RNA sequence: CUUAGCGGUGACUGGAGAGUUCUAUCCAUCUAACCCUAAGGCGAGGAAUACACGGCGGCUCCUCUUGCUCGUUGUUUUAAUGGCUGACUUUCAGCGGGCAUAGGAGUCAUGGAAAGCCAGGACUAAAAAACGUCAGCCGUAGUCUCCCCAGUCCCCGCCAGCCUGCCCAGCCAUGGUUGCUGCCUCUGCUUUCAAUGUCCGCAGCUCCUAACUAUGAGGCCGCGGUCUGCCAACACCCCGGGCAGUCGCGAAGAGUUCGUCUCUGUCAGCCUUUGGAGCUGCGGCGGAGGAGGAGAGGCGGCUGAGGGUGGCAGGUGAGAGGAAAGUGAGCCGAGCUGUUCCCUGUCUGUUUACCGCCCCUGAGCUGUGGGGUGUGUGAACUGCAGCAAGGCUCCGACAUCU
Numbered sequence: 001c002u003u004a005g006c007g008g009u010g011a012c013u014g015g016a017g018a019g020u021u022c023u024a025u026c027c028a029u030c031u032a033a034c035c036c037u038a039a040g041g042c043g044a045g046g047a048a049u050a051c052a053c054g055g056c057g058g059c060u061c062c063u064c065u066u067g068c069u070c071g072u073u074g075u076u077u078u079a080a081u082g083g084c085u086g087a088c089u090u091u092c093a094g095c096g097g098g099c100a101u102a103g104g105a106g107u108c109a110u111g112g113a114a115a116g117c118c119a120g121g122a123c124u125a126a127a128a129a130a131c132g133u134c135a136g137c138c139g140u141a142g143u144c145u146c147c148c149c150a151g152u153c154c155c156c157g158c159c160a161g162c163c164u165g166c167c168c169a170g171c172c173a174u175g176g177u178u179g180c181u182g183c184c185u186c187u188g189c190u191u192u193c194a195a196u197g198u199c200c201g202c203a204g205c206u207c208c209u210a211a212c213u214a215u216g217a218g219g220c221c222g223c224g225g226u227c228u229g230c231c232a233a234c235a236c237c238c239c240g241g242g243c244a245g246u247c248g249c250g251a252a253g254a255g256u257u258c259g260u261c262u263c264u265g266u267c268a269g270c271c272u273u274u275g276g277a278g279c280u281g282c283g284g285c286g287g288a289g290g291a292g293g294a295g296a297g298g299c300g301g302c303u304g305a306g307g308g309u310g311g312c313a314g315g316u317g318a319g320a321g322g323a324a325a326g327u328g329a330g331c332c333g334a335g336c337u338g339u340u341c342c343c344u345g346u347c348u349g350u351u352u353a354c355c356g357c358c359c360c361u362g363a364g365c366u367g368u369g370g371g372g373u374g375u376g377u378g379a380a381c382u383g384c385a386g387c388a389a390g391g392c393u394c395c396g397a398c399a400u401c402u
Stems, first nucleotide, its partner, number of pairs: 005158004010153006017146002019143003058107005066100009083137006089130003162315006179302009199284007207276002210273002221250005227245004252264004328394004335387005350380005357372004
The record is a 402-nucleotide RNA sequence from Aquarana catesbeiana, which matches "Vertebrate telomerase RNA" in Rfam.
On this family, see Chen et al., Cell 2000: "Secondary structure of vertebrate telomerase RNA".
Its family is annotated with telomerase activity, telomerase catalytic core complex and telomere maintenance via telomerase in the Gene Ontology.
The family's consensus secondary structure is taken from published work.
Telomerase is a ribonucleoprotein reverse transcriptase that synthesises telomeric DNA. Telomerase RNAs differ greatly in sequence and structure between vertebrates, ciliates and yeasts, but they share a 5' pseudoknot structure close to the template sequence. Vertebrate telomerase RNAs have a 3' H/ACA snoRNA-like domain.
Taxonomically the source falls in Aquarana (Eukaryota, Eumetazoa, Deuterostomia, Gnathostomata).
By type it is a non-coding RNA gene.